Shown here is a 61-nucleotide RNA, a member of the family "RAGATH-18 RNA".
RNA sequence: CCUUUGGAGAAUCAUAUCAAACGAAAGUAGCUACGGCAAAUCGGAUUCAAUGAAGAAGGGA
Dot-bracket structure: (((((...(((((........(((.....((....))...))))))))......)))))..